[Rfam]
RNA sequence: CCGGGGAUUUACAUCCCCGGCAGAGAGCUUCCGUCCCUCCGGGACU
Numbered sequence: 001c002c003g004g005g006g007a008u009u010u011a012c013a014u015c016c017c018c019g020g021c022a023g024a025g026a027g028c029u030u031c032c033g034u035c036c037c038u039c040c041g042g043g044a045c046u
Stems, first nucleotide, its partner, number of pairs: 001020008033045005

Rfam assigns this 46-nucleotide RNA from Rubripirellula obstinata to the family "Acido-Lenti-1 RNA". The base pairs follow the family's consensus structure, which is taken from published work. NCBI's taxonomy places the organism under Bacteria, Planctomycetota, Planctomycetia, Pirellulales, Rubripirellula.